[Rfam]
This 104-nucleotide sequence from Streptococcus mutans belongs to the Rfam family "Streptococcus sRNA SSRC34". Rfam describes the family as follows. It is based on computationally predicted coordinates (RNAz). NCBI's taxonomy places the organism under Bacteria, Lactobacillales, Streptococcaceae, Streptococcus, Streptococcus mutans. Rfam classes the family as a small RNA. A reference for the family is Tesorero et al. (2013), "Novel Regulatory Small RNAs in Streptococcus pyogenes", PLoS One. A search with the family's covariance model found it, with a score of 66 bits.
RNA sequence: UGUAAACGUUUUACAAUAAUAAUGUUCUUAAAUUUCUUUAAUUAAAGAGAAUAACAUUAUUCUUUUUAUCUGAGAAAAAAUAUUUAAAAGGAGGAAGAACAAGA
Numbered sequence: 001u002g003u004a005a006a007c008g009u010u011u012u013a014c015a016a017u018a019a020u021a022a023u024g025u026u027c028u029u030a031a032a033u034u035u036c037u038u039u040a041a042u043u044a045a046a047g048a049g050a051a052u053a054a055c056a057u058u059a060u061u062c063u064u065u066u067u068a069u070c071u072g073a074g075a076a077a078a079a080a081u082a083u084u085u086a087a088a089a090g091g092a093g094g095a096a097g098a099a100c101a102a103g104a
Stems, first nucleotide, its partner, number of pairs: 006025005012019001026098004033077006041069001043068011